A member of the RNA family "ffh sRNA" from Rhodobacteraceae bacterium THAF1, 53 nucleotides long. Pairs were carried over by alignment from the consensus structure, which is taken from published work. On this family, see Meyer et al., BMC Genomics 2009: "Identification of candidate structured RNAs in the marine organism 'Candidatus Pelagibacter ubique'". The family's RNA type in Rfam is small RNA.
RNA sequence: UCGCGUCGGGAUCGCCCCCCGCCAGCGAGUUUCGCCCGCGGGGGCCAAUUACG
Numbered sequence: 001u002c003g004c005g006u007c008g009g010g011a012u013c014g015c016c017c018c019c020c021g022c023c024a025g026c027g028a029g030u031u032u033c034g035c036c037c038g039c040g041g042g043g044g045c046c047a048a049u050u051a052c053g
Base pairs, nucleotide, nucleotide: 016044017043018042019041020040021039022038025035026034027033028032